[Rfam]
A member of the RNA family "c-di-GMP-I riboswitch aptamer" from Paenibacillus sp. NFR01, 89 nucleotides long.
The source organism's lineage runs through Bacteria, Bacilli, Caryophanales, Paenibacillaceae and Paenibacillus.
RNA sequence: CCGCGUUAAUCGUAAAGUCACCGAAAGGUGAUGACACAAAGCUAUGGGUCUAAAGCCGUUAAAUCGGCCAUGAUUGCCAAGUUGCCAUA
Numbered sequence: 001c002c003g004c005g006u007u008a009a010u011c012g013u014a015a016a017g018u019c020a021c022c023g024a025a026a027g028g029u030g031a032u033g034a035c036a037c038a039a040a041g042c043u044a045u046g047g048g049u050c051u052a053a054a055g056c057c058g059u060u061a062a063a064u065c066g067g068c069c070a071u072g073a074u075u076g077c078c079a080a081g082u083u084g085c086c087a088u089a
Base pairs, nucleotide, nucleotide: 012037013036017032018031019030020029021028022027040083041082042081043080045079046078047077048074049073050072055068056067057066058065